The family of this 106-nucleotide RNA from Selenihalanaerobacter shriftii is "c-di-GMP-I riboswitch aptamer". A search with the family's covariance model found it, with a score of 66 bits.
[Rfam]
RNA sequence: CCUCGAAAAAGGCACACUUAUUGAAAGGUGAGGUCGCAAAGCUCUAAAUCUAAGGUAUGGUAUUUGACUAUUAAUAAUAUCAUGCUAUGAUCGUUAAGCUACCGAA
Numbered sequence: 001c002c003u004c005g006a007a008a009a010a011g012g013c014a015c016a017c018u019u020a021u022u023g024a025a026a027g028g029u030g031a032g033g034u035c036g037c038a039a040a041g042c043u044c045u046a047a048a049u050c051u052a053a054g055g056u057a058u059g060g061u062a063u064u065u066g067a068c069u070a071u072u073a074a075u076a077a078u079a080u081c082a083u084g085c086u087a088u089g090a091u092c093g094u095u096a097a098g099c100u101a102c103c104g105a106a
Stems, first nucleotide, its partner, number of pairs: 012037002017032006040100004045096003048091003055085010

Taxonomically the source falls in Selenihalanaerobacter (Bacteria, Bacillati, Bacillota, Clostridia).